Record summary:
Rfam assigns this 305-nucleotide RNA from Flavobacterium dankookense to the family "Bacterial RNase P class A". For this family Rfam cites "Identification and characterization of small RNAs in Yersinia pestis" (Beauregard et al., RNA Biol, 2013).
[Rfam]
RNA sequence: CGCGCAGACCGCCUUAUCGUCUCAAUUUAUUGAGGAGGAAAGUCCGGACACCAAAGAGUAGCAUAUUGGGUAACGCCCAACCGUCGAAAGGCGAGGACAAGUGCAACAGAAAGUAUGUACAGUUCGGCUGUAGUGAAACCAGGUAAACUCUAUGCGGUGAAAUUCCAAGUAUAUCGGCAUUUAAGGAUUACUCGUCCGUUGUCGAAGGGUAGGAAGAUUGAUUCCGUGAGUAAUUGCGGAACUAGAUAAAUGAUAAGGGUUCGUUUCGGCGAAUACAGAAUCCGGCUUACAGGUCUGCUUUUUUA
Numbered sequence: 001c002g003c004g005c006a007g008a009c010c011g012c013c014u015u016a017u018c019g020u021c022u023c024a025a026u027u028u029a030u031u032g033a034g035g036a037g038g039a040a041a042g043u044c045c046g047g048a049c050a051c052c053a054a055a056g057a058g059u060a061g062c063a064u065a066u067u068g069g070g071u072a073a074c075g076c077c078c079a080a081c082c083g084u085c086g087a088a089a090g091g092c093g094a095g096g097a098c099a100a101g102u103g104c105a106a107c108a109g110a111a112a113g114u115a116u117g118u119a120c121a122g123u124u125c126g127g128c129u130g131u132a133g134u135g136a137a138a139c140c141a142g143g144u145a146a147a148c149u150c151u152a153u154g155c156g157g158u159g160a161a162a163u164u165c166c167a168a169g170u171a172u173a174u175c176g177g178c179a180u181u182u183a184a185g186g187a188u189u190a191c192u193c194g195u196c197c198g199u200u201g202u203c204g205a206a207g208g209g210u211a212g213g214a215a216g217a218u219u220g221a222u223u224c225c226g227u228g229a230g231u232a233a234u235u236g237c238g239g240a241a242c243u244a245g246a247u248a249a250a251u252g253a254u255a256a257g258g259g260u261u262c263g264u265u266u267c268g269g270c271g272a273a274u275a276c277a278g279a280a281u282c283c284g285g286c287u288u289a290c291a292g293g294u295c296u297g298c299u300u301u302u303u304u305a
Stems, first nucleotide, its partner, number of pairs: 002300001004298007011290001012258007020035006040288003044285005049159004056193004061155005066080005081095001082093004096150002101148002103144002118132006163215004174205005185197004222241008